[Rfam]
Shown here is an 86-nucleotide RNA from Terrapene triunguis, a member of the family "Selenocysteine transfer RNA". NCBI's taxonomy places the organism under Eukaryota, Sarcopterygii, Sauria, Cryptodira, Terrapene.
RNA sequence: GAGUAGUUGUGGCUGAGUGGUUAAAGCAAUGGACUACAAAUCCAUUAGGGGGUUUCUCCCCACAGGUUCGAAUCCUGCUCCUGCUA
Numbered sequence: 001g002a003g004u005a006g007u008u009g010u011g012g013c014u015g016a017g018u019g020g021u022u023a024a025a026g027c028a029a030u031g032g033a034c035u036a037c038a039a040a041u042c043c044a045u046u047a048g049g050g051g052g053u054u055u056c057u058c059c060c061c062a063c064a065g066g067u068u069c070g071a072a073u074c075c076u077g078c079u080c081c082u083g084c085u086a
Base pairs, nucleotide, nucleotide: 002085003084004083005082006081009078012027013026014025017022028046029045030044031043032042033041048061049060050059051058052057063077064076065075066074